The family of this 79-nucleotide sequence from Methylomonas sp. DH-1 is "c-di-GMP-I riboswitch aptamer".
[Rfam]
RNA sequence: UAGGACACCAGCCACAUCCGCCGCGAGGCGGAGCCGGAAAGCCACGGGUCUUGGACGACAAGACGGCCGGGUUGCCUUC
Numbered sequence: 001u002a003g004g005a006c007a008c009c010a011g012c013c014a015c016a017u018c019c020g021c022c023g024c025g026a027g028g029c030g031g032a033g034c035c036g037g038a039a040a041g042c043c044a045c046g047g048g049u050c051u052u053g054g055a056c057g058a059c060a061a062g063a064c065g066g067c068c069g070g071g072u073u074g075c076c077u078u079c
Stems, first nucleotide, its partner, number of pairs: 012037002017032006040073004045069003048064003053059001
Dot-bracket structure: ...........((...((((((....))))))...))..((((.((((((..(.....)..)))..)))))))......
Lineage of the source: Bacteria > Pseudomonadota > Gammaproteobacteria > Methylococcales > Methylomonas.
Gene Ontology term of the family: cyclic-di-GMP binding.